[Rfam]
RNA: abiF RNA
RNA sequence: CCCCCCACGCCUCUCGAAGACGCGCACCAUGGGGGGU
Numbered sequence: 001c002c003c004c005c006c007a008c009g010c011c012u013c014u015c016g017a018a019g020a021c022g023c024g025c026a027c028c029a030u031g032g033g034g035g036g037u
Stems, first nucleotide, its partner, number of pairs: 001036006008024003